[Rfam]
The record is a 108-nucleotide sequence from Paludibacter propionicigenes, which matches "Bacteroidales small SRP" in Rfam.
Rfam's curators put it in the seed alignment.
The organism belongs to Paludibacter propionicigenes, within Bacteria.
RNA sequence: UUGUGCCGGGUAAGUCCUACACGACCAGCUCCCUUUGAACUCCCCCAGGGCUUGACCGCAGCAAGGGUAAAAGGUCGUAGCGGUGCGAUGUAGGGUGCUUACCCACUU
Dot-bracket structure: .......((((((((.(((((((((.........................................................)).)).)))))...))))))))....